[Rfam]
RNA sequence: AUGAAAGAGUUUGAUAAAAAUGUAACAUUUUAGCUUUCUAUAGUAUCAAAGUCUAACCUAUUCUGGUGCUCUCCUCUAUGAGACAAGCCGUUAUAUAGACUUAGACAGU
Numbered sequence: 001a002u003g004a005a006a007g008a009g010u011u012u013g014a015u016a017a018a019a020a021u022g023u024a025a026c027a028u029u030u031u032a033g034c035u036u037u038c039u040a041u042a043g044u045a046u047c048a049a050a051g052u053c054u055a056a057c058c059u060a061u062u063c064u065g066g067u068g069c070u071c072u073c074c075u076c077u078a079u080g081a082g083a084c085a086a087g088c089c090g091u092u093a094u095a096u097a098g099a100c101u102u103a104g105a106c107a108g109u
Base pairs, nucleotide, nucleotide: 003026006023008021010019049102050101051100052099053098054097055096059095060094061093064090065089066088067087070083071082072081073080
The record is a 109-nucleotide RNA from Myotis lucifugus, which matches "Small nucleolar RNA SNORA28" in Rfam. The family's consensus secondary structure was predicted with RNAfold. From the family's description: ACA28 is a member of the H/ACA class of snoRNA that guide the sites of modification of uridines to pseudouridines. It is annotated as an H/ACA-box small nucleolar RNA. Its family is annotated with RNA processing and nucleolus in the Gene Ontology.